Notes: This 191-nucleotide RNA sequence from Phyllostomus discolor belongs to the Rfam family "U2 spliceosomal RNA". Taxonomically the source falls in Phyllostomus (Eukaryota, Vertebrata, Gnathostomata, Dipnotetrapodomorpha).
RNA sequence: AUUGCUUCUUGGCCUUUUGGCUAAGAUCAAGUGUAGGAUCUGUUCUUAUCAGUUUAAUAUCUGAUAUAUCCUCUAUCUGAGGACAAUAUAGUGAAUGGAUUUUUGGAAUUAGAAAAUGGAAUAGGAGCUUGCUUGGUCCAUUCCACACAUCAACCUAGUAUUGCUGUACUUCCAGGAUUGAUGCAGACAUA
Numbered sequence: 001a002u003u004g005c006u007u008c009u010u011g012g013c014c015u016u017u018u019g020g021c022u023a024a025g026a027u028c029a030a031g032u033g034u035a036g037g038a039u040c041u042g043u044u045c046u047u048a049u050c051a052g053u054u055u056a057a058u059a060u061c062u063g064a065u066a067u068a069u070c071c072u073c074u075a076u077c078u079g080a081g082g083a084c085a086a087u088a089u090a091g092u093g094a095a096u097g098g099a100u101u102u103u104u105g106g107a108a109u110u111a112g113a114a115a116a117u118g119g120a121a122u123a124g125g126a127g128c129u130u131g132c133u134u135g136g137u138c139c140a141u142u143c144c145a146c147a148c149a150u151c152a153a154c155c156u157a158g159u160a161u162u163g164c165u166g167u168a169c170u171u172c173c174a175g176g177a178u179u180g181a182u183g184c185a186g187a188c189a190u191a
Base pairs, nucleotide, nucleotide: 007026008025009024011022012021013020014019047066048065049064050063051062052061069083070082071081072080073079112144114142115141118138119137125134126133127132148183149182150181151180152179154176155175156174158172